[Rfam]
RNA sequence: AACCGAUAAAGGCAAACCUAACGAAAGUUGGGGACGCAAAGCUACAGGGCCUUCCUUAGUUAACUAAGAUGGCAGCCAGUUACCGAA
Numbered sequence: 001a002a003c004c005g006a007u008a009a010a011g012g013c014a015a016a017c018c019u020a021a022c023g024a025a026a027g028u029u030g031g032g033g034a035c036g037c038a039a040a041g042c043u044a045c046a047g048g049g050c051c052u053u054c055c056u057u058a059g060u061u062a063a064c065u066a067a068g069a070u071g072g073c074a075g076c077c078a079g080u081u082a083c084c085g086a087a
Base pairs, nucleotide, nucleotide: 012037013036017032018031019030020029021028022027040081041080042079043078047077048076049073050072051071056067057066058065059064
c-di-GMP-I riboswitch aptamer: an 87-nucleotide RNA sequence from Paenibacillus tyrphae.
Pairs were carried over by alignment from the consensus structure, which is taken from published work.
NCBI's taxonomy places the organism under Bacteria, Bacillati, Bacillota, Caryophanales, Paenibacillus.